[Rfam]
RNA sequence: UACUAUUACCGGAUAAUACCGAAGACAGUAUGCGGCUUAGGCCUUAAUAUCAUACCGAGGACACAUGUGAUUACGUUAAUCAACUAUGAUCCCUCUAUGUCUACGGUGACAUGGGGUUUUUUUAUACGAUAA
Numbered sequence: 001u002a003c004u005a006u007u008a009c010c011g012g013a014u015a016a017u018a019c020c021g022a023a024g025a026c027a028g029u030a031u032g033c034g035g036c037u038u039a040g041g042c043c044u045u046a047a048u049a050u051c052a053u054a055c056c057g058a059g060g061a062c063a064c065a066u067g068u069g070a071u072u073a074c075g076u077u078a079a080u081c082a083a084c085u086a087u088g089a090u091c092c093c094u095c096u097a098u099g100u101c102u103a104c105g106g107u108g109a110c111a112u113g114g115g116g117u118u119u120u121u122u123u124a125u126a127c128g129a130u131a132a
Stems, first nucleotide, its partner, number of pairs: 028055005034043003093116009

About this RNA
A member of the RNA family "Ribosomal protein L10 leader" from Alkalibacterium sp. 20, 132 nucleotides long. Gene Ontology term of the family: regulation of gene expression. It scores 62 bits against the family's covariance model. Rfam describes the family as follows. This family is a putative r-protein leader autoregulatory structure found in B. subtilis and other low-GC Gram-positive bacteria. It is located in the 5' untranslated regions of mRNAs encoding ribosomal proteins L10 and L12 (rplJ-rplL). A Rho-independent transcription terminator structure that is probably involved in regulation is included at the 3' end. Rfam classes the family as a cis-regulatory leader.